[Rfam]
Notes
The record is a 126-nucleotide sequence from Jaculus jaculus, which matches "Small nucleolar RNA SNORA44" in Rfam. It is annotated as an H/ACA-box small nucleolar RNA. Clan: SNORA44 clan. Pairs were carried over by alignment from the consensus structure, which was predicted with PFOLD. Rfam describes the family as follows. ACA44 is a member of the H/ACA class of snoRNA that guide the sites of modification of uridines to pseudouridines. The match comes from Rfam's covariance-model search (95 bits).

RNA sequence: UAGCAUGUUUCUAAGAGAUGUGGCUGUUUGUGGAUAUGGGAUCUCCAACUGCAUGCUAGAGCAAUGUGGAGAGACUUUGAUAGUUCAAAUCAACACAGUACCUGUGGCUGCCACUCGCCUAAAGUG
Dot-bracket structure: ..........((...(..((((......))))..)..))............................((.(((.........((.((...............)).....))..))).)).......